[Rfam]
RNA sequence: CGCCUAAACCCAUAAUUUAAAUUGCGGGCAUGGCACAAACCCCACAUACGCAUACUGAACCCGUCGUUCAGGCUAUUGCAUAUGUGGUCAUAUUCCGAAAGGAAUAUGGAGGCGCAAGUCUC
Numbered sequence: 001c002g003c004c005u006a007a008a009c010c011c012a013u014a015a016u017u018u019a020a021a022u023u024g025c026g027g028g029c030a031u032g033g034c035a036c037a038a039a040c041c042c043c044a045c046a047u048a049c050g051c052a053u054a055c056u057g058a059a060c061c062c063g064u065c066g067u068u069c070a071g072g073c074u075a076u077u078g079c080a081u082a083u084g085u086g087g088u089c090a091u092a093u094u095c096c097g098a099a100a101g102g103a104a105u106a107u108g109g110a111g112g113c114g115c116a117a118g119u120c121u122c
Stems, first nucleotide, its partner, number of pairs: 002034003009028003013024003042087007050079003055071005089108008109122005
Description
Rfam assigns this 122-nucleotide RNA sequence to the family "LOOT RNA". Pairs were carried over by alignment from the consensus structure, which is taken from published work. The family's RNA type in Rfam is small RNA.